[Rfam]
RNA sequence: GAUAGUAUGGUAGAAAGAUUCCUAUAGGAAUCUUUCUACCAUACUAUCCAUUUAAAUUAUUAAAAUGUAGAAAGAUACAC
Numbered sequence: 001g002a003u004a005g006u007a008u009g010g011u012a013g014a015a016a017g018a019u020u021c022c023u024a025u026a027g028g029a030a031u032c033u034u035u036c037u038a039c040c041a042u043a044c045u046a047u048c049c050a051u052u053u054a055a056a057u058u059a060u061u062a063a064a065a066u067g068u069a070g071a072a073a074g075a076u077a078c079a080c
Stems, first nucleotide, its partner, number of pairs: 001048022
This 80-nucleotide RNA sequence belongs to the Rfam family "Plastid-psbM 3UTR RNA". Rfam describes the family as follows. Plastid psbM is a non-coding RNA (ncRNA) recognised in plastids. For this family Rfam cites "Retrograde signaling in plants: A critical review focusing on the GUN pathway and beyond" (Richter et al., Plant Commun, 2023). By type it is a cis-regulatory element.